RNA sequence: UAAAAGGGUUUCUGUCACAAGAAGCACACGUAGGACAGCUCUUGUUCUUUGCAGAAUCAACAUCAAGAGAUUUUGGAAGUAUAAUUUUUUGGUUCUUAGGUAGCUGGUGAUUGUUGGUCCUGACACCCUU
Numbered sequence: 001u002a003a004a005a006g007g008g009u010u011u012c013u014g015u016c017a018c019a020a021g022a023a024g025c026a027c028a029c030g031u032a033g034g035a036c037a038g039c040u041c042u043u044g045u046u047c048u049u050u051g052c053a054g055a056a057u058c059a060a061c062a063u064c065a066a067g068a069g070a071u072u073u074u075g076g077a078a079g080u081a082u083a084a085u086u087u088u089u090u091g092g093u094u095c096u097u098a099g100g101u102a103g104c105u106g107g108u109g110a111u112u113g114u115u116g117g118u119c120c121u122g123a124c125a126c127c128c129u130u
Base pairs, nucleotide, nucleotide: 008080009079010078011077012076013026014025015024027051028050030048033047034046035045036044037043052075053074054073055072056071057070058069099127100126101125103124105122106121107120109119110118111117112116
Rfam assigns this 130-nucleotide RNA from Odocoileus virginianus to the family "U11 spliceosomal RNA". The organism belongs to Odocoileus virginianus, within Eukaryota. The family's consensus secondary structure is taken from published work.